[Rfam]
RNA: skipping-rope RNA
Organism: Paenibacillus donghaensis
RNA sequence: AGUUGCUGAGGUAGAAAAGGUUCUCUACGCGCUUACCGAUGCUGAAUAAGCACUAUAUCGAAAAGUCAACAGAGAUGCAGGAUACACCGCCCUGCCAGCAAUU
Numbered sequence: 001a002g003u004u005g006c007u008g009a010g011g012u013a014g015a016a017a018a019g020g021u022u023c024u025c026u027a028c029g030c031g032c033u034u035a036c037c038g039a040u041g042c043u044g045a046a047u048a049a050g051c052a053c054u055a056u057a058u059c060g061a062a063a064a065g066u067c068a069a070c071a072g073a074g075a076u077g078c079a080g081g082a083u084a085c086a087c088c089g090c091c092c093u094g095c096c097a098g099c100a101a102u103u
Stems, first nucleotide, its partner, number of pairs: 001103008011028005019088003030072001031066004077095005